[Rfam]
RNA sequence: UGUUGAGUGAUGAUAAAAAUCAAUCGGAUUCCCACUGAUGUUUAUAUAUGAUUUCACAACCAGCUACUUCUGACAACA
Numbered sequence: 001u002g003u004u005g006a007g008u009g010a011u012g013a014u015a016a017a018a019a020u021c022a023a024u025c026g027g028a029u030u031c032c033c034a035c036u037g038a039u040g041u042u043u044a045u046a047u048a049u050g051a052u053u054u055c056a057c058a059a060c061c062a063g064c065u066a067c068u069u070c071u072g073a074c075a076a077c078a
Base pairs, nucleotide, nucleotide: 001078002077003076004075005074
RNA: Small nucleolar RNA R12